nrdJ RNA: an 85-nucleotide RNA sequence from Streptomyces lacrimifluminis.
It scores 71 bits against the family's covariance model.
The family's RNA type in Rfam is small RNA.
[Rfam]
RNA sequence: ACCUGCUGCGGGCGGCAUCAAGAGGGUGCCCGCAGCGCAACAAACCACACCGUGUCAUGGGAACAACGUGACACUUCUGGGCGUU
Numbered sequence: 001a002c003c004u005g006c007u008g009c010g011g012g013c014g015g016c017a018u019c020a021a022g023a024g025g026g027u028g029c030c031c032g033c034a035g036c037g038c039a040a041c042a043a044a045c046c047a048c049a050c051c052g053u054g055u056c057a058u059g060g061g062a063a064c065a066a067c068g069u070g071a072c073a074c075u076u077c078u079g080g081g082c083g084u085u
Stems, first nucleotide, its partner, number of pairs: 004037011016025001052074008